[Rfam]
RNA sequence: GGGCGGUUAGCUCAGUGGUAGAGCACAUCGUUCACACCGAUGGGGUCACUGGUUCGAACCCAGUACCGCCCA
Numbered sequence: 001g002g003g004c005g006g007u008u009a010g011c012u013c014a015g016u017g018g019u020a021g022a023g024c025a026c027a028u029c030g031u032u033c034a035c036a037c038c039g040a041u042g043g044g045g046u047c048a049c050u051g052g053u054u055c056g057a058a059c060c061c062a063g064u065a066c067c068g069c070c071c072a
Stems, first nucleotide, its partner, number of pairs: 001071007010024004026042005048064005
Annotation
tRNA: a 72-nucleotide sequence from Haloferula rosea. The base pairs follow the family's consensus structure, which is taken from published work.